[Rfam]
RNA sequence: GGAAGUACCUCCAUUUCAACGGCCAAAACCAGCCCGCGAGCAUUCUCCCGUCGGGGUUCAAAAUCCGGCGGGCAACUAAGUGCAAGACAUUGGGCCUUGGUGUAAGGGAGUGAGGAUUCAGGGCGCCGCACCCUCGGGCGAGCGGUGCUUCUGCCUCAUGUUUCUCCAGGUUGGCGAUGGAAAUGGGGUGCCCCCACCCGUCUUGAAACACGG
Dot-bracket structure: ((..(((((((.....(..((((..........................)))))...((....................................................................................................................)).......)))))))..))..((((........))))